[Rfam]
RNA: SAM (S-adenosyl methionine) riboswitch aptamer
Organism: Williamsia sp. 1138
RNA sequence: GGUCAUGAGUGUCAGCAACAAGCCCCGGCUCGCUGACCGGCAACCCUCCAACCGCGGUGGGGUGCUCCGGGUGAUGACCUGGUUGCGGUUCGCCGCAGCAAGCGCGGGUC
Numbered sequence: 001g002g003u004c005a006u007g008a009g010u011g012u013c014a015g016c017a018a019c020a021a022g023c024c025c026c027g028g029c030u031c032g033c034u035g036a037c038c039g040g041c042a043a044c045c046c047u048c049c050a051a052c053c054g055c056g057g058u059g060g061g062g063u064g065c066u067c068c069g070g071g072u073g074a075u076g077a078c079c080u081g082g083u084u085g086c087g088g089u090u091c092g093c094c095g096c097a098g099c100a101a102g103c104g105c106g107g108g109u110c
Stems, first nucleotide, its partner, number of pairs: 001079004009038001011037006021030002039066003044062003048057002082099007